[Rfam]
A member of the RNA family "Small nucleolar RNA Z278" from Malus baccata, 114 nucleotides long. Rfam's curators write: snoZ278 is a C/D box small nucleolar RNA. Its methylation guide targets have not been reported. The family's consensus secondary structure was predicted with PFOLD. A reference for the family is Chen et al. (2003), "The high diversity of snoRNAs in plants: identification and comparative study of 120 snoRNA genes from Oryza sativa", Nucleic Acids Res.
RNA sequence: GCCGAUGACGAUUCAAUCAGCUUGUUCGAGGUGCAGUGGAAUUGAGACCCUGUUUACAGGGAGAACCCCUCAGUGAAACUGCAUUCAUAUGAAUUUAAUAGAUUUAACAGAGGU
Numbered sequence: 001g002c003c004g005a006u007g008a009c010g011a012u013u014c015a016a017u018c019a020g021c022u023u024g025u026u027c028g029a030g031g032u033g034c035a036g037u038g039g040a041a042u043u044g045a046g047a048c049c050c051u052g053u054u055u056a057c058a059g060g061g062a063g064a065a066c067c068c069c070u071c072a073g074u075g076a077a078a079c080u081g082c083a084u085u086c087a088u089a090u091g092a093a094u095u096u097a098a099u100a101g102a103u104u105u106a107a108c109a110g111a112g113g114u
Stems, first nucleotide, its partner, number of pairs: 001114003048061005